S4-Fusobacteriales ribosomal protein leader: a 58-nucleotide RNA. For this family Rfam cites "Discovery of 20 novel ribosomal leader candidates in bacteria and archaea" (Eckert and Weinberg, BMC Microbiol, 2020). It is annotated as a cis-regulatory leader. The family is grouped with related families in Rfam's "Ribosomal Protein S4 Leader clan".
RNA sequence: UUGUAAAGGUAUAUUUAGCCGUAAGGGCUUGUACUUCAAAAGAAGGUAUACCGAGGAA
Numbered sequence: 001u002u003g004u005a006a007a008g009g010u011a012u013a014u015u016u017a018g019c020c021g022u023a024a025g026g027g028c029u030u031g032u033a034c035u036u037c038a039a040a041a042g043a044a045g046g047u048a049u050a051c052c053g054a055g056g057a058a
Stems, first nucleotide, its partner, number of pairs: 008052006014031001017029004034045004
Dot-bracket structure: .......(((((((..((((.....)))).)..((((....)))).))))))......